RNA sequence: GGGGCUCAAAUUGACUCUAGUAGGGAGUCUCAACUUUGGUUGACUCCCUAAUGGAGUCAGAUUGAGCCACUU
Numbered sequence: 001g002g003g004g005c006u007c008a009a010a011u012u013g014a015c016u017c018u019a020g021u022a023g024g025g026a027g028u029c030u031c032a033a034c035u036u037u038g039g040u041u042g043a044c045u046c047c048c049u050a051a052u053g054g055a056g057u058c059a060g061a062u063u064g065a066g067c068c069a070c071u072u
Stems, first nucleotide, its partner, number of pairs: 011060008021050009
This 72-nucleotide RNA from Nesidiocoris tenuis belongs to the Rfam family "mir-929 microRNA precursor family". NCBI's taxonomy places the organism under Eukaryota, Pancrustacea, Heteroptera, Euheteroptera, Nesidiocoris. A search with the family's covariance model found it, with a score of 72 bits. The family's consensus secondary structure was predicted with RNAalifold. Rfam links the family to the GO terms RISC complex and miRNA-mediated post-transcriptional gene silencing.